[Rfam]
RNA sequence: AUCUAACCCCGAACACUCCGGUUUCUCCGCGCCGUCCCCGACCACCUGACGAUUGCUCGCUACGCGUUGUCAGCA
Numbered sequence: 001a002u003c004u005a006a007c008c009c010c011g012a013a014c015a016c017u018c019c020g021g022u023u024u025c026u027c028c029g030c031g032c033c034g035u036c037c038c039c040g041a042c043c044a045c046c047u048g049a050c051g052a053u054u055g056c057u058c059g060c061u062a063c064g065c066g067u068u069g070u071c072a073g074c075a
Stems, first nucleotide, its partner, number of pairs: 002012002019034004024029001046073007
RNA: Xanthomonas sRNA sX9